[Rfam]
RNA sequence: UAUGGCAGAUGAUGAUACACAUUGUAAAUACUGAAUAAUCAUGUUGAUUAUUUACUCCGCUUAUUAUCUGAUGUCAUU
Numbered sequence: 001u002a003u004g005g006c007a008g009a010u011g012a013u014g015a016u017a018c019a020c021a022u023u024g025u026a027a028a029u030a031c032u033g034a035a036u037a038a039u040c041a042u043g044u045u046g047a048u049u050a051u052u053u054a055c056u057c058c059g060c061u062u063a064u065u066a067u068c069u070g071a072u073g074u075c076a077u078u
Stems, first nucleotide, its partner, number of pairs: 003076005
Source information:
Shown here is a 78-nucleotide sequence from Anisodus acutangulus, a member of the family "Small nucleolar RNA R16". The family's consensus secondary structure was predicted with PFOLD. Gene Ontology terms of the family: RNA processing and nucleolus. Rfam classes the family as a C/D-box small nucleolar RNA. It scores 61 bits against the family's covariance model.